Cyano-1 RNA: a 68-nucleotide sequence. By type it is a small RNA.
RNA sequence: AUAUGUGUAGGAGUGGAUUUACUGAAGCAGUGGAAACAAGGAAACACUUGUUUUGGUAGAACCAUAAA
Numbered sequence: 001a002u003a004u005g006u007g008u009a010g011g012a013g014u015g016g017a018u019u020u021a022c023u024g025a026a027g028c029a030g031u032g033g034a035a036a037c038a039a040g041g042a043a044a045c046a047c048u049u050g051u052u053u054u055g056g057u058a059g060a061a062c063c064a065u066a067a068a
Stems, first nucleotide, its partner, number of pairs: 014064003018060002022056002027051003030047003
Dot-bracket structure: .............(((.((..((...((((((............))).)))...))..)).)))....

The base pairs follow the family's consensus structure, which is taken from published work. It is one of the family's seed sequences.